[Rfam]
Nucleotides: 084
Stems, first nucleotide, its partner, number of pairs: 002083003006079002009076003013072008022063005028058005034053003
Number, partner (000 for none) and nucleotide at each position: 001000a002083g003082a004081g005000c006079g007078u008000c009076u010075c011074a012000a013072a014071g015070c016069a017068a018067a019066c020065a021000c022063a023062g024061u025060a026059g027000u028058g029057u030056g031055c032054a033000a034053u035052g036051c037000u038000a039000a040000a041000g042000u043000c044000c045000u046000a047000a048000c049000g050000u051036g052035c053034a054032u055031g056030u057029a058028c059026u060025u061024a062023c063022u064000u065020u066019g067018u068017u069016u070015g071014u072013u073000c074011u075010g076009a077000u078007a079006c080000a081004c082003u083002c084000u